[Rfam]
RNA sequence: AAGUGUACCCGGAUCUGAUAUCCUAUCACCAAAAAGAGGAUGCAGAUUUUGGUACACUUCA
Numbered sequence: 001a002a003g004u005g006u007a008c009c010c011g012g013a014u015c016u017g018a019u020a021u022c023c024u025a026u027c028a029c030c031a032a033a034a035a036g037a038g039g040a041u042g043c044a045g046a047u048u049u050u051g052g053u054a055c056a057c058u059u060c061a
Stems, first nucleotide, its partner, number of pairs: 001059009011049007019042006
Rfam assigns this 61-nucleotide sequence from Caenorhabditis elegans to the family "mir-2208 microRNA precursor family". Rfam links the family to the GO terms miRNA-mediated post-transcriptional gene silencing and RISC complex. The family's consensus secondary structure was predicted with RNAalifold. Rfam's curators put it in the seed alignment. The organism belongs to Caenorhabditis, within Eukaryota.